RNA sequence: UUCUUAUCCAGAGUCGGGGGAGGAAACUGGUCCUGUGAUCCCGCAGCAACCUGUAAGAUACAAGGUGCUAAGUCCAGCAAGCAUUUGCUUGAAAGAUGAGAU
Numbered sequence: 001u002u003c004u005u006a007u008c009c010a011g012a013g014u015c016g017g018g019g020g021a022g023g024a025a026a027c028u029g030g031u032c033c034u035g036u037g038a039u040c041c042c043g044c045a046g047c048a049a050c051c052u053g054u055a056a057g058a059u060a061c062a063a064g065g066u067g068c069u070a071a072g073u074c075c076a077g078c079a080a081g082c083a084u085u086u087g088c089u090u091g092a093a094a095g096a097u098g099a100g101a102u
Stems, first nucleotide, its partner, number of pairs: 002101007013044001015043004022033003027077004045069004050065002052062004073094001078091005